mir-218 microRNA precursor family: an 83-nucleotide RNA sequence from Danio rerio. A reference for the family is Chen et al. (2005), "The developmental miRNA profiles of zebrafish as determined by small RNA cloning", Genes Dev. The family has 74 seed sequences and 1,392 matches in Rfam 15.1.

Nucleotides: 083
Base pairs, nucleotide, nucleotide: 001083002082003081004080006078007077008076009075013071014070015069016068017067018066019065024060025059026058027057028056029055030054031053
Number, partner (000 for none) and nucleotide at each position: 001083c002082a003081g004080c005000u006078g007077u008076c009075u010000c011000u012000u013071g014070u015069g016068c017067u018066u019065g020000a021000u022000c023000u024060a025059a026058c027057c028056a029055u030054g031053u032000g033000c034000c035000g036000c037000c038000g039000c040000c041000u042000a043000c044000a045000c046000a047000a048000g049000c050000c051000u052000c053031a054030c055029a056028u057027g058026g059025u060024u061000c062000c063000g064000u065019c066018a067017a068016g069015c070014a071013c072000c073000a074000g075009g076008g077007a078006c079000c080004g081003c082002u083001g
Source information
The sequence is in the family's curated seed alignment.